The family of this 73-nucleotide sequence from Clostridium botulinum is "RAGATH-18 RNA". Taxonomically the source falls in Clostridium botulinum (Bacteria, Bacillota, Eubacteriales, Clostridium). It is annotated as a small RNA.

[Rfam]
RNA sequence: CCUGUGAAGAAUUAUACAAAAUGAAAGUAGUAUGUGAUUUAUCACUACAAAAUCAGAUUCGUUGAAACAGGAA
Numbered sequence: 001c002c003u004g005u006g007a008a009g010a011a012u013u014a015u016a017c018a019a020a021a022u023g024a025a026a027g028u029a030g031u032a033u034g035u036g037a038u039u040u041a042u043c044a045c046u047a048c049a050a051a052a053u054c055a056g057a058u059u060c061g062u063u064g065a066a067a068c069a070g071g072a073a
Stems, first nucleotide, its partner, number of pairs: 001071005009060005022055003030048003035044002